The record is a 95-nucleotide RNA, which matches "GA-cis RNA" in Rfam.
It is annotated as a small RNA.
RNA sequence: AUGAGGAGAGUCCCCAAAUGAUGCGCAGCAUUAUUUCUUCAAAUGGGACCGACGACGUGCCGCCUACGCCAGAGGCGGAGGGGGCGACACCAUAA
Numbered sequence: 001a002u003g004a005g006g007a008g009a010g011u012c013c014c015c016a017a018a019u020g021a022u023g024c025g026c027a028g029c030a031u032u033a034u035u036u037c038u039u040c041a042a043a044u045g046g047g048a049c050c051g052a053c054g055a056c057g058u059g060c061c062g063c064c065u066a067c068g069c070c071a072g073a074g075g076c077g078g079a080g081g082g083g084g085c086g087a088c089a090c091c092a093u094a095a
Stems, first nucleotide, its partner, number of pairs: 008050001011047003018034006059085003063081002067077004